[Rfam]
RNA: Small nucleolar RNA SNORA74
Organism: Oryctolagus cuniculus
RNA sequence: UCCAGCAGUAGUCAGCUGUCCGGACAGAUCCAUUCCUGUGACGGUGUUACACUGCUGGGAGAGCAAUGUCUUGCCUUCUUCAUCUAGUUGCUUCCCUCACCGUUCUGGUGGCAGGUGGCACUGGUGCAGGGCAGAACUGUGCUUCCUUGAGAGUGUGCUAAGCAUUUCGUUUUUUGGCUGCUUAGUUCUAGUCUGGGAGCAGACACA
Numbered sequence: 001u002c003c004a005g006c007a008g009u010a011g012u013c014a015g016c017u018g019u020c021c022g023g024a025c026a027g028a029u030c031c032a033u034u035c036c037u038g039u040g041a042c043g044g045u046g047u048u049a050c051a052c053u054g055c056u057g058g059g060a061g062a063g064c065a066a067u068g069u070c071u072u073g074c075c076u077u078c079u080u081c082a083u084c085u086a087g088u089u090g091c092u093u094c095c096c097u098c099a100c101c102g103u104u105c106u107g108g109u110g111g112c113a114g115g116u117g118g119c120a121c122u123g124g125u126g127c128a129g130g131g132c133a134g135a136a137c138u139g140u141g142c143u144u145c146c147u148u149g150a151g152a153g154u155g156u157g158c159u160a161a162g163c164a165u166u167u168c169g170u171u172u173u174u175u176g177g178c179u180g181c182u183u184a185g186u187u188c189u190a191g192u193c194u195g196g197g198a199g200c201a202g203a204c205a206c207a
Stems, first nucleotide, its partner, number of pairs: 001059009011050002015045006021038001022036003068137002071134006083126001086125001087122001089120004094115002096111001098110004140201007155188001157186001159184006
Dot-bracket structure: (((((((((.((..((((((((((.........))).).))))))...)))))))))))........((.((((((......(..((.((((.(((.((((.....)))))..)).)))).)..))..)))))).))..(((((((........(.(.((((((..............)))))).).)......)))))))......